[Rfam]
RNA: Small nucleolar RNA R44/J54/Z268 family
Organism: Camellia sinensis
RNA sequence: UGUCCAAUUGAUUAUAAAUCAGACAGGGACAUCAGAAUCUCAAUGAUGCUUUUUAUUUGGAAAUCUCUAUGAUGGACA
Numbered sequence: 001u002g003u004c005c006a007a008u009u010g011a012u013u014a015u016a017a018a019u020c021a022g023a024c025a026g027g028g029a030c031a032u033c034a035g036a037a038u039c040u041c042a043a044u045g046a047u048g049c050u051u052u053u054u055a056u057u058u059g060g061a062a063a064u065c066u067c068u069a070u071g072a073u074g075g076a077c078a
Stems, first nucleotide, its partner, number of pairs: 002077005